[Rfam]
RNA sequence: AGAAUUCGCAGUGGCGCACUCCUCCUCCCAGCGCCACUCCGAUCCGACGGGCAACACUCCUCCUCCCAGUUGCCUGUCACCAUAAAUGACGCCCGCUGGACCUCCUCCCCCAGCGGGCGUUAUUU
Number, nucleotide and partner (000 for none) at each position: 001a000002g000003a000004a000005u000006u000007c041008g040009c000010a000011g037012u036013g035014g034015c033016g032017c031018a000019c000020u000021c000022c000023u000024c000025c000026u000027c000028c000029c000030a000031g017032c016033g015034c014035c013036a012037c011038u000039c000040c008041g007042a000043u000044c000045c000046g078047a077048c076049g075050g074051g073052c072053a071054a070055c069056a000057c000058u000059c000060c000061u000062c000063c000064u000065c000066c000067c000068a000069g055070u054071u053072g052073c051074c050075u049076g048077u047078c046079a000080c000081c000082a000083u000084a000085a000086a000087u000088g000089a120090c119091g118092c117093c116094c115095g114096c113097u112098g111099g110100a000101c000102c000103u000104c000105c000106u000107c000108c000109c000110c099111c098112a097113g096114c095115g094116g093117g092118c091119g090120u089121u000122a000123u000124u000125u000
Notes:
The record is a 125-nucleotide RNA from Pararhizobium polonicum, which matches "Alphaproteobacterial ar14" in Rfam. About the family: Smr14C2 was renamed NfeR1 (Nodule Formation Efficiency RNA) highly expressed in salt stress and during the symbiotic interaction on legume roots. The pairing is the family consensus, mapped onto this sequence.